[Rfam]
RNA sequence: GGCCUUUGCUCGACCCCACCUCCUCCCGGGGUCCAUAGCAAAAGCGGCGGCGUCCUCCUCCUCCCUGACGUCGCCGCACUUU
Numbered sequence: 001g002g003c004c005u006u007u008g009c010u011c012g013a014c015c016c017c018a019c020c021u022c023c024u025c026c027c028g029g030g031g032u033c034c035a036u037a038g039c040a041a042a043a044g045c046g047g048c049g050g051c052g053u054c055c056u057c058c059u060c061c062u063c064c065c066u067g068a069c070g071u072c073g074c075c076g077c078a079c080u081u082u
Stems, first nucleotide, its partner, number of pairs: 007037002012033006045076010
RNA: Conserved CCUCCUCCC motif stress-induced RNA 1
Organism: Paragemmobacter aquarius